[Rfam]
The family of this 102-nucleotide RNA sequence from Compostibacillus humi is "Purine riboswitch aptamer". NCBI's taxonomy places the organism under Bacteria, Bacillati, Bacillota, Bacillaceae, Compostibacillus.
RNA sequence: GAAAAUACAAUACUUCGCCUUUAUAUAUCCUCGAUAAUAUGGUUCGAGAGUCUCUACCGGGACACCGUAAAUGUCCUGACUAUAAAGGCAGAAUACCCUUUG
Numbered sequence: 001g002a003a004a005a006u007a008c009a010a011u012a013c014u015u016c017g018c019c020u021u022u023a024u025a026u027a028u029c030c031u032c033g034a035u036a037a038u039a040u041g042g043u044u045c046g047a048g049a050g051u052c053u054c055u056a057c058c059g060g061g062a063c064a065c066c067g068u069a070a071a072u073g074u075c076c077u078g079a080c081u082a083u084a085a086a087g088g089c090a091g092a093a094u095a096c097c098c099u100u101u102g
Base pairs, nucleotide, nucleotide: 018088019087020086021085022084023083024082025081030048031047032046033045034044058078059077060076061075062074063073064072